[Rfam]
RNA sequence: CAUUUUUCUUAAACAGUGCUUUAAAAAAAUU
Numbered sequence: 001c002a003u004u005u006u007u008c009u010u011a012a013a014c015a016g017u018g019c020u021u022u023a024a025a026a027a028a029a030u031u
Base pairs, nucleotide, nucleotide: 002030003029004028005027006026007025009024010023011022012021013020014018

This 31-nucleotide RNA sequence from Sarcophilus harrisii belongs to the Rfam family "Iron response element II". Rfam links the family to the GO term response to iron ion. The family's RNA type in Rfam is cis-regulatory element. The base pairs follow the family's consensus structure, which is taken from published work. Taxonomically the source falls in Sarcophilus (Eukaryota, Eumetazoa, Deuterostomia, Tetrapoda). About the family: IRE, TFRC, SLC40A1, SDHB, SLC11A2, CDC42BPA, ACO2, ALAS2_H.SAPIENS, CDC14A, EPAS1, ALAS2, qoxD, Hao1, NDUFS1, transferrin, Aconitate.